Record summary: This 168-nucleotide RNA sequence from Ferroacidibacillus organovorans belongs to the Rfam family "glmS glucosamine-6-phosphate activated ribozyme aptamer". Gene Ontology terms of the family: regulation of gene expression and catalytic activity. It scores 83 bits against the family's covariance model. On this family, see Winkler et al., Nature 2004: "Control of gene expression by a natural metabolite-responsive ribozyme". NCBI's taxonomy places the organism under Bacteria, Bacillota, Caryophanales, Alicyclobacillaceae, Ferroacidibacillus. It is annotated as a riboswitch.
Nucleotides: 168
Stems, first nucleotide, its partner, number of pairs: 020050007029041001059090005068078003091108006113158006127144007
Number, partner (000 for none) and nucleotide at each position: 001000c002000a003000g004000u005000u006000g007000u008000c009000g010000u011000a012000a013000g014000c015000g016000c017000c018000a019000g020050g021049a022048c023047u024046g025045g026044a027000c028000g029041g030000g031000a032000c033000g034000a035000g036000a037000u038000g039000u040000g041029c042000g043000c044026u045025c046024c047023a048022g049021u050020u051000g052000a053000c054000g055000c056000g057000g058000u059090g060089g061088a062087g063086g064000u065000u066000g067000g068078c069077g070076a071000a072000g073000g074000a075000c076070u077069c078068g079000g080000c081000g082000g083000g084000u085000g086063c087062c088061u089060c090059c091108c092107g093106g094105u095104g096103u097000a098000g099000a100000u101000u102000c103096a104095c105094a106093c107092c108091g109000c110000g111000a112000a113158g114157a115156u116155c117154a118153a119000u120000g121000g122000g123000a124000a125000a126000a127144u128143g129142g130141c131140a132139a133138g134000g135000u136000g137000a138133c139132u140131u141130g142129c143128c144127g145000g146000a147000c148000a149000g150000g151000a152000c153118u154117u155116g156115a157114u158113c159000a160000g161000a162000a163000u164000c165000a166000g167000a168000a